[Rfam]
RNA sequence: GUCGGCUAUGGGGACAUGUACCCGGAGACGGUGGGCGGUAAGCUGGUGGGCUCCAUGUGUGCCAUCGCCGGCGUGCUCACUAUAUCUUUGCCAGUCCCGGUCAUCGUGUCGAAC
Numbered sequence: 001g002u003c004g005g006c007u008a009u010g011g012g013g014a015c016a017u018g019u020a021c022c023c024g025g026a027g028a029c030g031g032u033g034g035g036c037g038g039u040a041a042g043c044u045g046g047u048g049g050g051c052u053c054c055a056u057g058u059g060u061g062c063c064a065u066c067g068c069c070g071g072c073g074u075g076c077u078c079a080c081u082a083u084a085u086c087u088u089u090g091c092c093a094g095u096c097c098c099g100g101u102c103a104u105c106g107u108g109u110c111g112a113a114c
Base pairs, nucleotide, nucleotide: 001114002113005110007108008107009106010105011104013102014101015100018097020095021094037077038076039075040074049063050062051061
Dot-bracket structure: ((..(.(((((.(((..(.((...............((((........(((.........)))..........))))................)).)..))).))))).)..))

Rfam assigns this 114-nucleotide RNA sequence from Gymnodraco acuticeps to the family "Potassium channel RNA editing signal". On this family, see Bhalla et al., Nat Struct Mol Biol 2004: "Control of human potassium channel inactivation by editing of a small mRNA hairpin". A search with the family's covariance model found it, with a score of 98 bits. The family's consensus secondary structure is taken from published work.